[Rfam]
RNA sequence: AUUCCUUCUGUUGUGUAUUCCCGAUUAAUGCAGCCUCAGAUGCUGCA
Numbered sequence: 001a002u003u004c005c006u007u008c009u010g011u012u013g014u015g016u017a018u019u020c021c022c023g024a025u026u027a028a029u030g031c032a033g034c035c036u037c038a039g040a041u042g043c044u045g046c047a
Stems, first nucleotide, its partner, number of pairs: 010025004032044003
Annotation: A member of the RNA family "Plastid-ycf3 group II-D1 intron", 47 nucleotides long. For this family Rfam cites "Retrograde signaling in plants: A critical review focusing on the GUN pathway and beyond" (Richter et al., Plant Commun, 2023). The base pairs follow the family's consensus structure, which was predicted with LocARNA. Rfam describes the family as follows. Plastid rpl16 is a non-coding RNA (ncRNA) recognised in plastids. It was recognised in and intronic region of a ribosome rpl16 gene. Its family is annotated with Group II intron splicing in the Gene Ontology.